[Rfam]
RNA: Yersinia sRNA 155(RyfD)
RNA sequence: CAAGACGAUCCAGUAAGCGUAUUUUUUGCUCACAACUCAGGUCAUUAACCUUGAAAAUUUGAGGGAUGACCUCAUUUUAAUCUCCAGUAGCAUUUUGACCUGUAAUGGGAGGAAUCAUGCGUCUGGAUCGUCUUAC
Numbered sequence: 001c002a003a004g005a006c007g008a009u010c011c012a013g014u015a016a017g018c019g020u021a022u023u024u025u026u027u028g029c030u031c032a033c034a035a036c037u038c039a040g041g042u043c044a045u046u047a048a049c050c051u052u053g054a055a056a057a058u059u060u061g062a063g064g065g066a067u068g069a070c071c072u073c074a075u076u077u078u079a080a081u082c083u084c085c086a087g088u089a090g091c092a093u094u095u096u097g098a099c100c101u102g103u104a105a106u107g108g109g110a111g112g113a114a115u116c117a118u119g120c121g122u123c124u125g126g127a128u129c130g131u132c133u134u135a136c
Stems, first nucleotide, its partner, number of pairs: 002134011015122001017120003021115002024040002028036001030035001049064006065076004081112005087106002